[Rfam]
RNA sequence: UGUCACGAGAACUGAUGCGAAGCCCCGGCUGGUCAGUCGGCAACCCUCCACUGCGGCGGGGUGCCCCGGGUGAUGACACGGUCCCUCCGCAACCGCGGACGGGCAAGCGCAGACC
Number, nucleotide and partner (000 for none) at each position: 001u078002g077003u076004c075005a000006c000007g000008a000009g038010a000011a037012c036013u035014g034015a033016u032017g000018c000019g000020a000021a030022g029023c000024c000025c000026c000027g000028g000029c022030u021031g000032g016033u015034c014035a013036g012037u011038c009039g065040g064041c063042a000043a000044c061045c060046c059047u000048c056049c055050a000051c000052u000053g000054c000055g049056g048057c000058g000059g046060g045061g044062u000063g041064c040065c039066c000067c000068g000069g000070g000071u000072g000073a000074u000075g004076a003077c002078a001079c000080g000081g104082u103083c102084c101085c000086u099087c098088c097089g096090c095091a000092a000093c000094c000095g090096c089097g088098g087099a086100c000101g084102g083103g082104c081105a000106a000107g000108c000109g000110c000111a000112g000113a000114c000115c000